[Rfam]
The family of this 159-nucleotide sequence from Zingiber officinale is "U1 spliceosomal RNA". It scores 134 bits against the family's covariance model. It is annotated as a spliceosomal small nuclear RNA. The literature on the family includes a 2001 paper in J Biol Chem by Katsamba et al., "Two functionally distinct steps mediate high affinity binding of U1A protein to U1 hairpin II RNA". Lineage of the source: Eukaryota > Viridiplantae > Euphyllophyta > Petrosaviidae > Zingiber.
RNA sequence: AUACUUACCUGGACGAGGUUUAUGGGCGAUCAAGAAGGCCUAUGACCUAGCCCAAUGACCUCCAUUGCACUUUGGAGGGGCAUUGGUCUACCAUCUCCCCAAGUUGGGAGAGUGGACGUCAUAAUUUGUGGUAGUGGGGUACGCGUUCGCGCGACCUUG
Numbered sequence: 001a002u003a004c005u006u007a008c009c010u011g012g013a014c015g016a017g018g019u020u021u022a023u024g025g026g027c028g029a030u031c032a033a034g035a036a037g038g039c040c041u042a043u044g045a046c047c048u049a050g051c052c053c054a055a056u057g058a059c060c061u062c063c064a065u066u067g068c069a070c071u072u073u074g075g076a077g078g079g080g081c082a083u084u085g086g087u088c089u090a091c092c093a094u095c096u097c098c099c100c101a102a103g104u105u106g107g108g109a110g111a112g113u114g115g116a117c118g119u120c121a122u123a124a125u126u127u128g129u130g131g132u133a134g135u136g137g138g139g140u141a142c143g144c145g146u147u148c149g150c151g152c153g154a155c156c157u158u159g
Stems, first nucleotide, its partner, number of pairs: 012120004016048005023042005049089002053086001055083003059079003062075002091115003094111003098107002136158005142153004